[Rfam]
RNA sequence: GUGCAUCCACUGAUAGACCUUGAACAAUCUGCAGUUGUUCCUUUGGUUUGCACUAGGAUGCAAAAGCAAAUGUCUGUGUGUGUGACAGCUCGGAUUGAAUAGGGGAGUACAUCU
Numbered sequence: 001g002u003g004c005a006u007c008c009a010c011u012g013a014u015a016g017a018c019c020u021u022g023a024a025c026a027a028u029c030u031g032c033a034g035u036u037g038u039u040c041c042u043u044u045g046g047u048u049u050g051c052a053c054u055a056g057g058a059u060g061c062a063a064a065a066g067c068a069a070a071u072g073u074c075u076g077u078g079u080g081u082g083u084g085a086c087a088g089c090u091c092g093g094a095u096u097g098a099a100u101a102g103g104g105g106a107g108u109a110c111a112u113c114u
Stems, first nucleotide, its partner, number of pairs: 002062007011052002014050006022040007073094004079087002
A member of the RNA family "Small nucleolar RNA SNORA31" from Muntiacus reevesi, 114 nucleotides long. Gene Ontology terms of the family: RNA processing and nucleolus. Taxonomically the source falls in Muntiacus (Eukaryota, Eumetazoa, Bilateria, Eutheria). Rfam describes the family as follows. ACA31 (SNORA31) belongs to the H/ACA class of snoRNAs which are thought to guide the sites of modification of uridines to pseudouridines. The family's consensus secondary structure was predicted with RNAalifold. The literature on the family includes a 2001 paper in EMBO J by Huttenhofer et al., "RNomics: an experimental approach that identifies 201 candidates for novel, small, non-messenger RNAs in mouse". The match comes from Rfam's covariance-model search (84 bits).